[Rfam]
RNA sequence: UGGCACCCAACAUGGUGGCCUGGAUACUGGGGACAACGUGAGAGACACCUCAGAGGAAAAAGGGGUGCGCACCCGCUCAAAUAAUUCAGAGAUGCUGCGGGAGCCUGCCGCGACUGAGCCAAAGGUCAGUUGGUUGUUCAAUCAUGGGGCAAGAAUUAAGUCAGCAUCAGAUUUAUGUGAUACAGUUAAGAGAAGCUCUACAGGCAAGAGGAGUAAAGGCUAAAACUGAGGAUUUAUUUCAUUUCUUUGAUUUUGUAAAGGACAUUUGUCCCU
Numbered sequence: 001u002g003g004c005a006c007c008c009a010a011c012a013u014g015g016u017g018g019c020c021u022g023g024a025u026a027c028u029g030g031g032g033a034c035a036a037c038g039u040g041a042g043a044g045a046c047a048c049c050u051c052a053g054a055g056g057a058a059a060a061a062g063g064g065g066u067g068c069g070c071a072c073c074c075g076c077u078c079a080a081a082u083a084a085u086u087c088a089g090a091g092a093u094g095c096u097g098c099g100g101g102a103g104c105c106u107g108c109c110g111c112g113a114c115u116g117a118g119c120c121a122a123a124g125g126u127c128a129g130u131u132g133g134u135u136g137u138u139c140a141a142u143c144a145u146g147g148g149g150c151a152a153g154a155a156u157u158a159a160g161u162c163a164g165c166a167u168c169a170g171a172u173u174u175a176u177g178u179g180a181u182a183c184a185g186u187u188a189a190g191a192g193a194a195g196c197u198c199u200a201c202a203g204g205c206a207a208g209a210g211g212a213g214u215a216a217a218g219g220c221u222a223a224a225a226c227u228g229a230g231g232a233u234u235u236a237u238u239u240c241a242u243u244u245c246u247u248u249g250a251u252u253u254u255g256u257a258a259a260g261g262a263c264a265u266u267u268g269u270c271c272c273u
Stems, first nucleotide, its partner, number of pairs: 006032003013026002038046002085123002096112005130152003134149001137148004157200002160196002208248006217235003221231001258273001260271004
RNA: Mason-Pfizer monkey virus packaging signal
Organism: Nannospalax galili